[Rfam]
RNA sequence: CGGUGUUACAGCUCUUUUACAAUUUGUGUGGCAGGUUUCCCAGUUUUUACCAGAAAAAAUCUAA
Numbered sequence: 001c002g003g004u005g006u007u008a009c010a011g012c013u014c015u016u017u018u019a020c021a022a023u024u025u026g027u028g029u030g031g032c033a034g035g036u037u038u039c040c041c042a043g044u045u046u047u048u049a050c051c052a053g054a055a056a057a058a059a060u061c062u063a064a
Stems, first nucleotide, its partner, number of pairs: 034061003037056002040053001043050002